[Rfam]
RNA: mir-375 microRNA precursor family
RNA sequence: GCUGACUUGAGCUGCUCGUACAGAACUCACUUCGCUGUUUUGUUCGUUCGGCUCGAGUUAGGG
Numbered sequence: 001g002c003u004g005a006c007u008u009g010a011g012c013u014g015c016u017c018g019u020a021c022a023g024a025a026c027u028c029a030c031u032u033c034g035c036u037g038u039u040u041u042g043u044u045c046g047u048u049c050g051g052c053u054c055g056a057g058u059u060a061g062g063g
Stems, first nucleotide, its partner, number of pairs: 002061002005058009017046002020043004025038002